Shown here is a 150-nucleotide RNA sequence from Actinidia chinensis, a member of the family "small nucleolar RNA snoR135". Gene Ontology terms of the family: RNA processing and nucleolus. The literature on the family includes a 2009 paper in Nucleic Acids Res by Chen and Wu, "Mining small RNA sequencing data: a new approach to identify small nucleolar RNAs in Arabidopsis". A search with the family's covariance model found it, with a score of 143 bits.
RNA sequence: AGGGCAGGGAUUGUGUGUAUCGGCGUUGUGCGACAAUCAAUGCACAGUGUUCGAAAGAGUUCCCUGCAAUACUGAAUCAACAGGGGAAGGUGGGCAGUUGUGUUUCAUUCCAUUCCAUUGAAACUAUCAACAAUCAUCUUCCCCACAUUU
Numbered sequence: 001a002g003g004g005c006a007g008g009g010a011u012u013g014u015g016u017g018u019a020u021c022g023g024c025g026u027u028g029u030g031c032g033a034c035a036a037u038c039a040a041u042g043c044a045c046a047g048u049g050u051u052c053g054a055a056a057g058a059g060u061u062c063c064c065u066g067c068a069a070u071a072c073u074g075a076a077u078c079a080a081c082a083g084g085g086g087a088a089g090g091u092g093g094g095c096a097g098u099u100g101u102g103u104u105u106c107a108u109u110c111c112a113u114u115c116c117a118u119u120g121a122a123a124c125u126a127u128c129a130a131c132a133a134u135c136a137u138c139u140u141c142c143c144c145a146c147a148u149u150u
Stems, first nucleotide, its partner, number of pairs: 004067007015045006083144011097131004